Overview
Rhizobiales sRNA Atu_At1: a 108-nucleotide RNA from Devosia crocina. Pairs were carried over by alignment from the consensus structure, which was predicted with CMfinder. Rfam classes the family as a small RNA. On this family, see Wilms et al., RNA Biol 2012: "Deep sequencing uncovers numerous small RNAs on all four replicons of the plant pathogen Agrobacterium tumefaciens".
RNA sequence: UUUUGGCGCGCGUCAACCGGACGCGGUGGUACGAGGAACGGGCAUGGUUUUUCCGGUUUCCCGGCCCGGCCAACGAAACGGCAGCCGAGCCUCUGUCCCACCCGCGCC
Numbered sequence: 001u002u003u004u005g006g007c008g009c010g011c012g013u014c015a016a017c018c019g020g021a022c023g024c025g026g027u028g029g030u031a032c033g034a035g036g037a038a039c040g041g042g043c044a045u046g047g048u049u050u051u052u053c054c055g056g057u058u059u060c061c062c063g064g065c066c067c068g069g070c071c072a073a074c075g076a077a078a079c080g081g082c083a084g085c086c087g088a089g090c091c092u093c094u095g096u097c098c099c100a101c102c103c104g105c106g107c108c
Stems, first nucleotide, its partner, number of pairs: 006107004011023004025102003028098002033093004039068005046062001069082003
Dot-bracket structure: .....((((.((((.....)))).(((((...((((..(((((..(...............).)))))(((........))).......))))...)).))).)))).